Rfam assigns this 53-nucleotide RNA from haloarchaeon 3A1-DGR to the family "leuA-Halobacteria RNA".
[Rfam]
RNA sequence: UAAUUCGGAGGAUAGAGGAAGUCGCCACACGGCGGCUGGCCGUGAAAUUCUCC
Number, nucleotide and partner (000 for none) at each position: 001u000002a000003a000004u000005u000006c000007g000008g000009a000010g000011g000012a000013u000014a000015g000016a000017g000018g000019a000020a037021g036022u035023c034024g033025c032026c031027a000028c000029a000030c000031g026032g025033c024034g023035g022036c021037u020038g000039g000040c000041c000042g000043u000044g000045a000046a000047a000048u000049u000050c000051u000052c000053c000

The source organism's lineage runs through Archaea, Methanobacteriati, Methanobacteriota, Halobacteria and Halobacteriales.
The family's consensus secondary structure is taken from published work.